Rfam assigns this 122-nucleotide sequence from Croceibacter atlanticus to the family "Bacteroidete tryptophan peptide leader RNA". Taxonomically the source falls in Croceibacter atlanticus (Bacteria, Pseudomonadati, Flavobacteriaceae, Croceibacter). It is one of the family's seed sequences. Gene Ontology terms of the family: S-adenosylmethionine metabolic process and regulation of gene expression. Rfam classes the family as a cis-regulatory leader. The family's consensus secondary structure is taken from published work.
RNA sequence: UAUAAUCCUGAGUAUAUUUGGCGCAUAUUAUGAAAGCAAACAAUACAUCUUGGUGGUGGAACAACUCUAGACAAUAGUCGUGAGCCACGCUUAGUAUGUAAAUACAAUACCAAAAGCCUGUC
Numbered sequence: 001u002a003u004a005a006u007c008c009u010g011a012g013u014a015u016a017u018u019u020g021g022c023g024c025a026u027a028u029u030a031u032g033a034a035a036g037c038a039a040a041c042a043a044u045a046c047a048u049c050u051u052g053g054u055g056g057u058g059g060a061a062c063a064a065c066u067c068u069a070g071a072c073a074a075u076a077g078u079c080g081u082g083a084g085c086c087a088c089g090c091u092u093a094g095u096a097u098g099u100a101a102a103u104a105c106a107a108u109a110c111c112a113a114a115a116g117c118c119u120g121u122c
Stems, first nucleotide, its partner, number of pairs: 036105001038103001044100005049094002052091004058086002070079003